About this RNA:
Small nucleolar RNA SNORD18: a 68-nucleotide sequence from Podargus strigoides. Its Rfam clan is "SNORD18 clan".

RNA sequence: UAGGAAUGAUGAACUUCUCACUGGUCCGUGUUUCAGAUCCGCAGUGACGAUUGUGAAGUUCUGACUUG
Numbered sequence: 001u002a003g004g005a006a007u008g009a010u011g012a013a014c015u016u017c018u019c020a021c022u023g024g025u026c027c028g029u030g031u032u033u034c035a036g037a038u039c040c041g042c043a044g045u046g047a048c049g050a051u052u053g054u055g056a057a058g059u060u061c062u063g064a065c066u067u068g
Base pairs, nucleotide, nucleotide: 001068002067003066004065
It scores 48 bits against the family's covariance model. Lineage of the source: Eukaryota > Sauria > Archosauria > Caprimulgiformes > Podargus. Pairs were carried over by alignment from the consensus structure, which was predicted with PFOLD.